[Rfam]
Overview
Plastid-psbA-4 3UTR RNA: a 61-nucleotide RNA sequence from Durio zibethinus. Lineage of the source: Eukaryota > Streptophyta > Streptophytina > rosids > Durio. It is annotated as a cis-regulatory element. From the family's description: Plastid psbA-4 is a non-coding RNA (ncRNA) present in plastids. It was identified in inverted repeat sequences in the 3 prime untranslate region (3UTR) of photosystem II quinone-binding protein (psbA). Its Rfam clan is "Plastid-psbA 3UTR RNA clan". On this family, see Richter et al., Plant Commun 2023: "Retrograde signaling in plants: A critical review focusing on the GUN pathway and beyond".
RNA sequence: AAGAGUAAGGAACAAUACCAACACUCUUGAUAGAACAAGAAAUUGGUUAUUGCUCCUUUAU
Numbered sequence: 001a002a003g004a005g006u007a008a009g010g011a012a013c014a015a016u017a018c019c020a021a022c023a024c025u026c027u028u029g030a031u032a033g034a035a036c037a038a039g040a041a042a043u044u045g046g047u048u049a050u051u052g053c054u055c056c057u058u059u060a061u
Stems, first nucleotide, its partner, number of pairs: 007058005013052005021044001025040005